Glycine riboswitch aptamer: an 87-nucleotide RNA sequence from Roseisalinus antarcticus. Clan: Glycine riboswitch clan. The base pairs follow the family's consensus structure.
[Rfam]
RNA sequence: CAGAACUGGUCGGGAGAGACGUCACAGGACGUCGCCGAAGGAGCAACCGCCCCGGAAACUCUCAGGCACCCGGACCGACCGGCCGAG
Numbered sequence: 001c002a003g004a005a006c007u008g009g010u011c012g013g014g015a016g017a018g019a020c021g022u023c024a025c026a027g028g029a030c031g032u033c034g035c036c037g038a039a040g041g042a043g044c045a046a047c048c049g050c051c052c053c054g055g056a057a058a059c060u061c062u063c064a065g066g067c068a069c070c071c072g073g074a075c076c077g078a079c080c081g082g083c084c085g086a087g
Stems, first nucleotide, its partner, number of pairs: 006082008019032004034067003037063002041061003047055002